Shown here is a 126-nucleotide sequence from Bambusicola thoracicus, a member of the family "Small nucleolar RNA SNORD22". Rfam 15.1 lists 1,081 matches to the family in 414 species. Lineage of the source: Eukaryota > Sarcopterygii > Saurischia > Galliformes > Bambusicola. On this family, see Tycowski et al., Nature 1996: "A mammalian gene with introns instead of exons generating stable RNA products". Its family is annotated with RNA processing and nucleolus in the Gene Ontology.
RNA sequence: CCCCGAUGAGGAAUCCCCCACGUGUCUGACCACCCCCACGGCAGCAGAGCCUGAGCUCAGGCAGAACCCACUGCUGCCGGAGGGUGGAAAGGAGGACGCUGCGUUCAGCAGAACGGUCUGAGGGGG
Numbered sequence: 001c002c003c004c005g006a007u008g009a010g011g012a013a014u015c016c017c018c019c020a021c022g023u024g025u026c027u028g029a030c031c032a033c034c035c036c037c038a039c040g041g042c043a044g045c046a047g048a049g050c051c052u053g054a055g056c057u058c059a060g061g062c063a064g065a066a067c068c069c070a071c072u073g074c075u076g077c078c079g080g081a082g083g084g085u086g087g088a089a090a091g092g093a094g095g096a097c098g099c100u101g102c103g104u105u106c107a108g109c110a111g112a113a114c115g116g117u118c119u120g121a122g123g124g125g126g
Stems, first nucleotide, its partner, number of pairs: 001125004